[Rfam]
RNA sequence: CAGCUCGAGUUUCUCUUCAUUCACGUAUAAAUCUUUCGCCUUUUACUAAAGAUUUCCGUGGAGGGGAACGUUUGCGAGUUUUUGAUAUUUUCGGGGGCUCUGCUCACAGCAGAGCC
Numbered sequence: 001c002a003g004c005u006c007g008a009g010u011u012u013c014u015c016u017u018c019a020u021u022c023a024c025g026u027a028u029a030a031a032u033c034u035u036u037c038g039c040c041u042u043u044u045a046c047u048a049a050a051g052a053u054u055u056c057c058g059u060g061g062a063g064g065g066g067a068a069c070g071u072u073u074g075c076g077a078g079u080u081u082u083u084g085a086u087a088u089u090u091u092c093g094g095g096g097g098c099u100c101u102g103c104u105c106a107c108a109g110c111a112g113a114g115c116c
Stems, first nucleotide, its partner, number of pairs: 003079004009069011029055008095116001097115006
RNA: U5 spliceosomal RNA